Ascomycota telomerase RNA: a 168-nucleotide part of an RNA from Fusarium torreyae.
The base pairs follow the family's consensus structure.
[Rfam]
RNA sequence: CAAGCCUGCGAGGAUCGAAUGGUCUCAGCAGGUCCCUCGGAUCAGCCGAAAGGCUGAGCUUGAGACGAAAGGGUGGUUUUUAUGGAUGUCUUUUGUCCACCCGUCAACGCCCUCCAUGUUAUCUUGCUGGCGAGAAACUUGGGGAGGAAUCAAAAACUAGUCCUUGUU
Numbered sequence: 001c002a003a004g005c006c007u008g009c010g011a012g013g014a015u016c017g018a019a020u021g022g023u024c025u026c027a028g029c030a031g032g033u034c035c036c037u038c039g040g041a042u043c044a045g046c047c048g049a050a051a052g053g054c055u056g057a058g059c060u061u062g063a064g065a066c067g068a069a070a071g072g073g074u075g076g077u078u079u080u081u082a083u084g085g086a087u088g089u090c091u092u093u094u095g096u097c098c099a100c101c102c103g104u105c106a107a108c109g110c111c112c113u114c115c116a117u118g119u120u121a122u123c124u125u126g127c128u129g130g131c132g133a134g135a136a137a138c139u140u141g142g143g144g145a146g147g148a149a150u151c152a153a154a155a156a157c158u159a160g161u162c163c164u165u166g167u168u
Stems, first nucleotide, its partner, number of pairs: 007030003010026003014023003035067001036064005042057004047052001085162003088157002091155005110147002112144004118138002122135005
The source organism's lineage runs through Eukaryota, Opisthokonta, Pezizomycotina, Hypocreomycetidae and Fusarium torreyae species complex.